Notes:
Shown here is a 102-nucleotide RNA from Pongo pygmaeus, a member of the family "mir-1237 microRNA precursor family".
RNA sequence: GUGGGGGGGCCCAGGCGCGGGAAGGGGUGGGGGUGGCAGAGCGCUGUCCCGGGGGCAGGGCUGAAGCGCGGCGACAGUAACUCUUUCUGCUCCGUCCCCCAG
Dot-bracket structure: .((((.((((...((.(((((.((((((.(..((.((...(((((((((.(....).))))...))))).)).))..).))))))))))).)))))))))).
The family has 3 seed sequences and 18 matches in Rfam 15.1.